[Rfam]
RNA sequence: UGUCUGUCUGCGGGAGAGAGUUGGGAGCGGUUAAUCUGUAUCUCAGCCACCGAAGGGGAAAUCGCCCGAAAUCUCUCAGGUAUCAAGAACCGCUGACAGGAA
Numbered sequence: 001u002g003u004c005u006g007u008c009u010g011c012g013g014g015a016g017a018g019a020g021u022u023g024g025g026a027g028c029g030g031u032u033a034a035u036c037u038g039u040a041u042c043u044c045a046g047c048c049a050c051c052g053a054a055g056g057g058g059a060a061a062u063c064g065c066c067c068g069a070a071a072u073c074u075c076u077c078a079g080g081u082a083u084c085a086a087g088a089a090c091c092g093c094u095g096a097c098a099g100g101a102a
Base pairs, nucleotide, nucleotide: 006097007096008095010093011092012091013090020047021046022045023044024043025042026041049081050080051079052077053076056075057074058073062069063068